[Rfam]
RNA sequence: UGGCACCCAAUGUGGCAGCCCAGGUACAAGGGCUUCAGUGAAGAGCAUUGCUGAGGAGAGCCGGCCACAUCAAAAAGAAAAGAAACAAGUAGUUGCAAGGCGGGAGCCUGCCGCAGCAACCGAGACCUCGGUAAGUGAGCCACGAUAUGGGACAAGACAUGAGUCAACAUGAACUGCUUGUUGAAGGCCUCAAGAAGGCACUUAAGGCGCGAGAGAUUAGGCGUAAAACACAGGAUUUGUUAAAGUUCUUUGUUUUUAUUAAGGAAGUUUGUCCCU
Numbered sequence: 001u002g003g004c005a006c007c008c009a010a011u012g013u014g015g016c017a018g019c020c021c022a023g024g025u026a027c028a029a030g031g032g033c034u035u036c037a038g039u040g041a042a043g044a045g046c047a048u049u050g051c052u053g054a055g056g057a058g059a060g061c062c063g064g065c066c067a068c069a070u071c072a073a074a075a076a077g078a079a080a081a082g083a084a085a086c087a088a089g090u091a092g093u094u095g096c097a098a099g100g101c102g103g104g105a106g107c108c109u110g111c112c113g114c115a116g117c118a119a120c121c122g123a124g125a126c127c128u129c130g131g132u133a134a135g136u137g138a139g140c141c142a143c144g145a146u147a148u149g150g151g152a153c154a155a156g157a158c159a160u161g162a163g164u165c166a167a168c169a170u171g172a173a174c175u176g177c178u179u180g181u182u183g184a185a186g187g188c189c190u191c192a193a194g195a196a197g198g199c200a201c202u203u204a205a206g207g208c209g210c211g212a213g214a215g216a217u218u219a220g221g222c223g224u225a226a227a228a229c230a231c232a233g234g235a236u237u238u239g240u241u242a243a244a245g246u247u248c249u250u251u252g253u254u255u256u257u258a259u260u261a262a263g264g265a266a267g268u269u270u271g272u273c274c275c276u
Base pairs, nucleotide, nucleotide: 006032007031008030012027013026014025037049038048039047086130088128089126090125095121100114101113102112103111136154137153140151141150161202163199164198165197210252211251212250213249215247216246217245219238220237221236222234224232261276263274264273265272
A member of the RNA family "Mason-Pfizer monkey virus packaging signal" from Mesocricetus auratus, 276 nucleotides long. From the family's description: This family represents a group of sequences that are related to the Mason-Pfizer monkey virus (MPMV) packaging signal. The packaging signal is located in the 5' UTR and is required for specific RNA encapsidation.